Overview
A member of the RNA family "Actinobacteria sRNA Ms_IGR-5" from Streptomyces lincolnensis, 225 nucleotides long. The organism belongs to Streptomyces, within Bacteria.
[Rfam]
RNA sequence: ACGCAUGAGAGGAGGUGAUCGGGUACAUGAGUGAAACCCGGACGCGCGAGGUGGCUGCGGGCUAGCGGCUCGCCACCACACCUAGUGCGGUGCCGGACCAGCGUGUGCGCGAAACACGCAGCCGGCCCAAACCAACGCAGUCACCCGACCCGCGAGCUCGCCGGUAACGUCCGGCCGGCUCCCCAGCCGUCAGGCGGGGGAACCCGAGUUCGCGGGUCGUCUGCG
Numbered sequence: 001a002c003g004c005a006u007g008a009g010a011g012g013a014g015g016u017g018a019u020c021g022g023g024u025a026c027a028u029g030a031g032u033g034a035a036a037c038c039c040g041g042a043c044g045c046g047c048g049a050g051g052u053g054g055c056u057g058c059g060g061g062c063u064a065g066c067g068g069c070u071c072g073c074c075a076c077c078a079c080a081c082c083u084a085g086u087g088c089g090g091u092g093c094c095g096g097a098c099c100a101g102c103g104u105g106u107g108c109g110c111g112a113a114a115c116a117c118g119c120a121g122c123c124g125g126c127c128c129a130a131a132c133c134a135a136c137g138c139a140g141u142c143a144c145c146c147g148a149c150c151c152g153c154g155a156g157c158u159c160g161c162c163g164g165u166a167a168c169g170u171c172c173g174g175c176c177g178g179c180u181c182c183c184c185a186g187c188c189g190u191c192a193g194g195c196g197g198g199g200g201a202a203c204c205c206g207a208g209u210u211c212g213c214g215g216g217u218c219g220u221c222u223g224c225g
Stems, first nucleotide, its partner, number of pairs: 015058003019054001060127004065122002068119002146219013160179006
By type it is a small RNA. It scores 64 bits against the family's covariance model.